The family of this 398-nucleotide RNA from Hymenobacter qilianensis is "Bacterial RNase P class A".
RNA sequence: GUGAUGAGUCGCUCCACCGCGGCGCCUUCGGGCGGCGAGGAAAGUCCGGGCAACACAGAGCACCCUGCUUCCUAACGGGAAGGAUGGGCCGUAAGGCUCAGACAGCCAGUGCCACAGAAAACUACCGCCUACGUUGUCUUCGGGCAGCCGGUAAGGGUGAAAAGGUGCGGUAAGAGCGCACCAGCGGCCGGGCAACCGUGUCGGCUGGGUAAACCUCAGGGGUUGAAAGACCAAAUAAGCGGGCACGCUGUCUGGCAACAGGCAGCACCGGGCGGCUCGUCCGGCGUCCGUGGGUAGGUUGAUGGAGCCUUUCGGCAACGACUGGCCUAGAUAAAUGGUGGAGACGCUGAGCCUUCGGGCCCGGCGGACAAAACCCGGCUUACAGACUCAUCACCACC
Number, nucleotide and partner (000 for none) at each position: 001g394002u393003g392004a391005u390006g389007a388008g387009u386010c385011g383012c343013u342014c341015c340016a339017c338018c337019g000020c037021g036022g000023c034024g033025c032026c031027u000028u000029c000030g000031g026032g025033c024034g023035g000036c021037g020038a000039g000040g000041a000042a381043a380044g379045u000046c378047c377048g376049g375050g374051c225052a224053a223054c222055a000056c000057a000058g278059a277060g276061c275062a000063c221064c220065c219066u218067g217068c082069u081070u080071c079072c078073u000074a000075a000076c000077g000078g072079g071080a070081a069082g068083g103084a000085u100086g099087g098088g097089c096090c095091g000092u000093a000094a000095g090096g089097c088098u087099c086100a085101g000102a000103c083104a216105g215106c000107c000108a000109g214110u213111g210112c209113c208114a000115c000116a000117g000118a000119a000120a000121a000122c000123u000124a000125c156126c155127g152128c151129c150130u000131a000132c000133g148134u147135u146136g145137u144138c143139u000140u000141c000142g000143g138144g137145c136146a135147g134148c133149c000150g129151g128152u127153a000154a000155g126156g125157g000158u000159g000160a000161a000162a000163a000164g182165g181166u180167g179168c178169g177170g000171u000172a000173a000174g000175a000176g000177c169178g168179c167180a166181c165182c164183a000184g205185c203186g202187g201188c200189c198190g197191g196192g000193c000194a000195a000196c191197c190198g189199u000200g188201u187202c186203g185204g000205c184206u000207g000208g113209g112210u111211a000212a000213a110214c109215c105216u104217c067218a066219g065220g064221g063222g054223u053224u052225g051226a000227a000228a000229g300230a299231c298232c297233a000234a000235a000236u000237a000238a000239g291240c290241g289242g288243g287244c286245a000246c000247g000248c000249u000250g000251u000252c000253u000254g000255g000256c000257a000258a000259c000260a000261g000262g000263c000264a000265g000266c000267a000268c000269c283270g282271g281272g280273c279274g000275g061276c060277u059278c058279g273280u272281c271282c270283g269284g000285c000286g244287u243288c242289c241290g240291u239292g000293g000294g000295u000296a000297g232298g231299u230300u229301g000302a000303u000304g000305g000306a000307g326308c325309c324310u000311u000312u321313c320314g319315g000316c000317a000318a000319c314320g313321a312322c000323u000324g309325g308326c307327c000328u000329a000330g000331a000332u000333a000334a000335a000336u000337g018338g017339u016340g015341g014342a013343g012344a000345c000346g000347c000348u000349g000350a000351g000352c000353c000354u000355u000356c000357g000358g000359g000360c000361c000362c000363g000364g000365c000366g000367g000368a000369c000370a000371a000372a000373a000374c050375c049376c048377g047378g046379c044380u043381u042382a000383c011384a000385g010386a009387c008388u007389c006390a005391u004392c003393a002394c001395c000396a000397c000398c000

Rfam classes the family as a ribozyme.